[Rfam]
RNA sequence: AUGAAGACUGCAGGAGAGUGGUUAUUAACCAAUUAUUAACAAUUGGUCAGCAUAACCCGCCGAAGAAUUAACUAUUUCAGGUGCUGUUUUACACAGCAGGGACUGUAGUUGGAGG
Numbered sequence: 001a002u003g004a005a006g007a008c009u010g011c012a013g014g015a016g017a018g019u020g021g022u023u024a025u026u027a028a029c030c031a032a033u034u035a036u037u038a039a040c041a042a043u044u045g046g047u048c049a050g051c052a053u054a055a056c057c058c059g060c061c062g063a064a065g066a067a068u069u070a071a072c073u074a075u076u077u078c079a080g081g082u083g084c085u086g087u088u089u090u091a092c093a094c095a096g097c098a099g100g101g102a103c104u105g106u107a108g109u110u111g112g113a114g115g
Stems, first nucleotide, its partner, number of pairs: 006110008020057006059082003062078002066076003
RNA: Glycine riboswitch aptamer